Shown here is an 83-nucleotide RNA sequence from Dolosicoccus paucivorans, a member of the family "SAM-III riboswitch aptamer (SMK box)". Pairs were carried over by alignment from the consensus structure, which is taken from published work. It scores 65 bits against the family's covariance model. Lineage of the source: Bacteria > Bacillati > Bacillota > Bacilli > Dolosicoccus.

RNA sequence: UCUAGUUACAAAAUAUUCCCGAAAGGGCUCAUCACGAUGAGAAUGCCUUGUAACCAAAAAAUAGAUGGGGGAAUGAAAGAAUG
Numbered sequence: 001u002c003u004a005g006u007u008a009c010a011a012a013a014u015a016u017u018c019c020c021g022a023a024a025g026g027g028c029u030c031a032u033c034a035c036g037a038u039g040a041g042a043a044u045g046c047c048u049u050g051u052a053a054c055c056a057a058a059a060a061a062u063a064g065a066u067g068g069g070g071g072a073a074u075g076a077a078a079g080a081a082u083g
Base pairs, nucleotide, nucleotide: 016073017072018071019070020069023049024048025047026046028041029040030039031038032037054068055067